Shown here is a 59-nucleotide RNA sequence, a member of the family "Transposase-1 RNA". The base pairs follow the family's consensus structure, which is taken from published work. The sequence is in the family's curated seed alignment.
RNA sequence: CUAUAAGAGUUAGUCACUGUCGUUACCCUCUUUUGAGGAUACGGGAAUACUAAUGUUGA
Numbered sequence: 001c002u003a004u005a006a007g008a009g010u011u012a013g014u015c016a017c018u019g020u021c022g023u024u025a026c027c028c029u030c031u032u033u034u035g036a037g038g039a040u041a042c043g044g045g046a047a048u049a050c051u052a053a054u055g056u057u058g059a
Stems, first nucleotide, its partner, number of pairs: 009054006020044004027038003